[Rfam]
The record is a 139-nucleotide RNA from Streptomyces sp. ICBB 8177, which matches "c-di-AMP riboswitch aptamer (ydaO/yuaA leader)" in Rfam. It scores 49 bits against the family's covariance model. NCBI's taxonomy places the organism under Bacteria, Actinomycetota, Kitasatosporales, Streptomycetaceae, Streptomyces.
RNA sequence: CAAGGUCUUCCGCCGGGACCCGGAACCACCCGGAACCGGGCCCCGGCUAGGGGUGAAGCUGUGCGCCUCACGGCACACGGCCGGGCACUCACCAGCCCGAACCCGACAGCUGACCUCGUAGGCGCCGGUGAGGAUCAAC
Numbered sequence: 001c002a003a004g005g006u007c008u009u010c011c012g013c014c015g016g017g018a019c020c021c022g023g024a025a026c027c028a029c030c031c032g033g034a035a036c037c038g039g040g041c042c043c044c045g046g047c048u049a050g051g052g053g054u055g056a057a058g059c060u061g062u063g064c065g066c067c068u069c070a071c072g073g074c075a076c077a078c079g080g081c082c083g084g085g086c087a088c089u090c091a092c093c094a095g096c097c098c099g100a101a102c103c104c105g106a107c108a109g110c111u112g113a114c115c116u117c118g119u120a121g122g123c124g125c126c127g128g129u130g131a132g133g134a135u136c137a138a139c
Base pairs, nucleotide, nucleotide: 011124012123013122014121019033020032035119036118038116039115040114041050051104052103053102059080060079061078062077083098084097085096086095